[Rfam]
RNA sequence: UGCCUCCUUCAGCUUACCACAGGCAGCUGGGACCCCACCGCUGGCUGUAUAGAAAGAGGAGGCACAGCAAAAGGCCCUCCGUGCACCCCAGUCGGGCCACCCCCCGUGCCUGAGCUGUUUGGUUUGUGCGGGCACAGCC
Numbered sequence: 001u002g003c004c005u006c007c008u009u010c011a012g013c014u015u016a017c018c019a020c021a022g023g024c025a026g027c028u029g030g031g032a033c034c035c036c037a038c039c040g041c042u043g044g045c046u047g048u049a050u051a052g053a054a055a056g057a058g059g060a061g062g063c064a065c066a067g068c069a070a071a072a073g074g075c076c077c078u079c080c081g082u083g084c085a086c087c088c089c090a091g092u093c094g095g096g097c098c099a100c101c102c103c104c105c106g107u108g109c110c111u112g113a114g115c116u117g118u119u120u121g122g123u124u125u126g127u128g129c130g131g132g133c134a135c136a137g138c139c
Stems, first nucleotide, its partner, number of pairs: 002063007020047003026041002075131002078128001080126001089117003092113006
Shown here is a 139-nucleotide RNA from Notechis scutatus, a member of the family "Small nucleolar RNA SNORA51". The family has 9 seed sequences and 2,121 matches in Rfam 15.1. Rfam describes the family as follows. ACA51 is a member of the H/ACA class of snoRNA that guide the sites of modification of uridines to pseudouridines. Rfam classes the family as an H/ACA-box small nucleolar RNA.